[Rfam]
RNA sequence: GGGGAUGAUAUGGCUUCGACGCUGGUAACGAAACCAGAGGUGCAUGCCGAGUGUACAGUGGCACUCGUACUCCAAUCGCUGUAAUCAAUAGUUGCAAAUGAUGACAACUACGGUGCUGCUCUAGCUGCGUAAGCAGUUAAAAAAGCACUUUUAGGGGUACGCCCCUAACGGUCUGUAACAAGGUGCCUGUACCGCGAUACCGACUGUCACUCAGAACAGGACCGCACCACGGCAUACUCGGGGUCGUGCUGCUAAAUUUUACUGAGUUCGCCAACCACGUCCUGCCCGUUGGGCUGUGGAAGGUUAAACUAAUUAACGGAAUCUAAGCAUGUAGAGCCGAUGGCAGAGUGCUGACGGACGCGGGUUCGACCCCCGCCAUCUCCACCA
Numbered sequence: 001g002g003g004g005a006u007g008a009u010a011u012g013g014c015u016u017c018g019a020c021g022c023u024g025g026u027a028a029c030g031a032a033a034c035c036a037g038a039g040g041u042g043c044a045u046g047c048c049g050a051g052u053g054u055a056c057a058g059u060g061g062c063a064c065u066c067g068u069a070c071u072c073c074a075a076u077c078g079c080u081g082u083a084a085u086c087a088a089u090a091g092u093u094g095c096a097a098a099u100g101a102u103g104a105c106a107a108c109u110a111c112g113g114u115g116c117u118g119c120u121c122u123a124g125c126u127g128c129g130u131a132a133g134c135a136g137u138u139a140a141a142a143a144a145g146c147a148c149u150u151u152u153a154g155g156g157g158u159a160c161g162c163c164c165c166u167a168a169c170g171g172u173c174u175g176u177a178a179c180a181a182g183g184u185g186c187c188u189g190u191a192c193c194g195c196g197a198u199a200c201c202g203a204c205u206g207u208c209a210c211u212c213a214g215a216a217c218a219g220g221a222c223c224g225c226a227c228c229a230c231g232g233c234a235u236a237c238u239c240g241g242g243g244u245c246g247u248g249c250u251g252c253u254a255a256a257u258u259u260u261a262c263u264g265a266g267u268u269c270g271c272c273a274a275c276c277a278c279g280u281c282c283u284g285c286c287c288g289u290u291g292g293g294c295u296g297u298g299g300a301a302g303g304u305u306a307a308a309c310u311a312a313u314u315a316a317c318g319g320a321a322u323c324u325a326a327g328c329a330u331g332u333a334g335a336g337c338c339g340a341u342g343g344c345a346g347a348g349u350g351c352u353g354a355c356g357g358a359c360g361c362g363g364g365u366u367c368g369a370c371c372c373c374c375g376c377c378a379u380c381u382c383c384a385c386c387a
Stems, first nucleotide, its partner, number of pairs: 001383007020356002023353005034343003039338003043331005048067005054083007120141001122139007169206005176199002179196001182193003186220005224252003228248003236268001238266001241263001270304003275299005280293003284323001288317003360376005

Overview: transfer-messenger RNA: a 387-nucleotide RNA from Oleiphilus sp. HI0066. The family's RNA type in Rfam is non-coding RNA gene. Lineage of the source: Bacteria > Pseudomonadati > Gammaproteobacteria > Oleiphilaceae > Oleiphilus. The family's consensus secondary structure is taken from published work.